[Rfam]
RNA sequence: AUCUCUUCAUGGCCUUUGGCUAAGAUCAAGUGUGGUAUCUGUUCUUAUCAGCUUAAAAUCUGACCUGUCCUCUAUUCAAGGACAAUAUAUUAAAUGUAUUUUUGAGCAAGGAGAUGGAAUAGGAGCUUGCUCCAACCAUUCCAUACAUCAACCCGGUACUGCAGUACCUCCAGGAAUGGUGCAUUCCAA
Numbered sequence: 001a002u003c004u005c006u007u008c009a010u011g012g013c014c015u016u017u018g019g020c021u022a023a024g025a026u027c028a029a030g031u032g033u034g035g036u037a038u039c040u041g042u043u044c045u046u047a048u049c050a051g052c053u054u055a056a057a058a059u060c061u062g063a064c065c066u067g068u069c070c071u072c073u074a075u076u077c078a079a080g081g082a083c084a085a086u087a088u089a090u091u092a093a094a095u096g097u098a099u100u101u102u103u104g105a106g107c108a109a110g111g112a113g114a115u116g117g118a119a120u121a122g123g124a125g126c127u128u129g130c131u132c133c134a135a136c137c138a139u140u141c142c143a144u145a146c147a148u149c150a151a152c153c154c155g156g157u158a159c160u161g162c163a164g165u166a167c168c169u170c171c172a173g174g175a176a177u178g179g180u181g182c183a184u185u186c187c188a189a
Base pairs, nucleotide, nucleotide: 007025008024011021012020013019014018048063049062050061051060067083068082069081070080071079110142111141112140113139116136122133123132124131125130146181147180148179149178150177152174153173155171156170
Dot-bracket structure: ......((..((((...))))..))......................((((........))))...(((((.......)))))..........................((((..(.....((((....))))..)..))))...(((((.((.((.............)).))..)))))........